[Rfam]
RNA: Small nucleolar RNA SNORA9
RNA sequence: AUGCAAGCUUCCAGCAUGGCCCGGCUCGUGGUAGCCCCGUCCAUUCCUGUACAGUUUGCCAGAGAAUCCUCGGGAUGGUUUGAGGCGUCCUCCUGCCGCUCCGGGGGGACGUUAUAGAAAUCCCGCACACUG
Numbered sequence: 001a002u003g004c005a006a007g008c009u010u011c012c013a014g015c016a017u018g019g020c021c022c023g024g025c026u027c028g029u030g031g032u033a034g035c036c037c038c039g040u041c042c043a044u045u046c047c048u049g050u051a052c053a054g055u056u057u058g059c060c061a062g063a064g065a066a067u068c069c070u071c072g073g074g075a076u077g078g079u080u081u082g083a084g085g086c087g088u089c090c091u092c093c094u095g096c097c098g099c100u101c102c103g104g105g106g107g108g109a110c111g112u113u114a115u116a117g118a119a120a121u122c123c124c125g126c127a128c129a130c131u132g
Base pairs, nucleotide, nucleotide: 003059004058005057006056007055008054017043018042019041023036024035025034026033071125072124073123074122075121086111087110088109089108090107091106093104094103095102